[Rfam]
RNA sequence: GUUAGUUGAAAAUCAUCUGCAGCUUUGGACUUGGCCGUGGGUGAGAUUUGAUACCCAGUGCCUCCAGGGGCCUUAGCUCACCACUCACUCCUCGGUGUGGGAAGGUGAAACCCAGGCCCUGACACAC
Numbered sequence: 001g002u003u004a005g006u007u008g009a010a011a012a013u014c015a016u017c018u019g020c021a022g023c024u025u026u027g028g029a030c031u032u033g034g035c036c037g038u039g040g041g042u043g044a045g046a047u048u049u050g051a052u053a054c055c056c057a058g059u060g061c062c063u064c065c066a067g068g069g070g071c072c073u074u075a076g077c078u079c080a081c082c083a084c085u086c087a088c089u090c091c092u093c094g095g096u097g098u099g100g101g102a103a104g105g106u107g108a109a110a111c112c113c114a115g116g117c118c119c120u121g122a123c124a125c126a127c
Stems, first nucleotide, its partner, number of pairs: 005052006013044004022035003067120001069118005078108005086099003

Annotation
Rfam assigns this 127-nucleotide RNA sequence from Vicugna pacos to the family "Small nucleolar RNA ACA64". The literature on the family includes a 2006 paper in RNA by Schattner et al., "A computational screen for mammalian pseudouridylation guide H/ACA RNAs". The organism belongs to Vicugna, within Eukaryota. It scores 112 bits against the family's covariance model.